[Rfam]
RNA: mir-8/mir-141/mir-200 microRNA precursor family
Organism: Chlorocebus sabaeus
RNA sequence: GUGAACAUCUUACCGGACAGUGCUGGAUUUCCCAGCUUGACUCUAACACUGUCUGGUAACGAUGUUCAA
Numbered sequence: 001g002u003g004a005a006c007a008u009c010u011u012a013c014c015g016g017a018c019a020g021u022g023c024u025g026g027a028u029u030u031c032c033c034a035g036c037u038u039g040a041c042u043c044u045a046a047c048a049c050u051g052u053c054u055g056g057u058a059a060c061g062a063u064g065u066u067c068a069a
Base pairs, nucleotide, nucleotide: 002068003067004066005065006064007063008062009061010059011058012057013056014055015054016053017052018051019050020049021048022047024045025044026043027042